[Rfam]
RNA: Small nucleolar RNA SNORD59
Organism: Bucorvus abyssinicus
RNA sequence: CCUCCGCUGAUGAGUAAUGCUCUGACUUUCGUUCUUCUGAGCUGGCUGAAGCGACCUUUAUCGCUCUGAGGAGG
Numbered sequence: 001c002c003u004c005c006g007c008u009g010a011u012g013a014g015u016a017a018u019g020c021u022c023u024g025a026c027u028u029u030c031g032u033u034c035u036u037c038u039g040a041g042c043u044g045g046c047u048g049a050a051g052c053g054a055c056c057u058u059u060a061u062c063g064c065u066c067u068g069a070g071g072a073g074g
Base pairs, nucleotide, nucleotide: 001074002073003072005070